[Rfam]
Nucleotides: 078
Base pairs, nucleotide, nucleotide: 002049003048004047005046006045007044008043021036022035023034024033025032
Number, partner (000 for none) and nucleotide at each position: 001000u002049u003048c004047g005046u006045c007044g008043a009000g010000g011000g012000g013000c014000g015000c016000u017000g018000c019000g020000a021036c022035c023034g024033u025032g026000g027000a028000u029000a030000g031000g032025c033024a034023c035022g036021g037000c038000c039000a040000g041000g042000c043008u044007c045006g046005a047004c048003g049002a050000g051000g052000u053000g054000c055000a056000c057000c058000a059000a060000g061000c062000a063000a064000c065000g066000g067000c068000g069000c070000c071000c072000g073000c074000u075000c076000g077000a078000u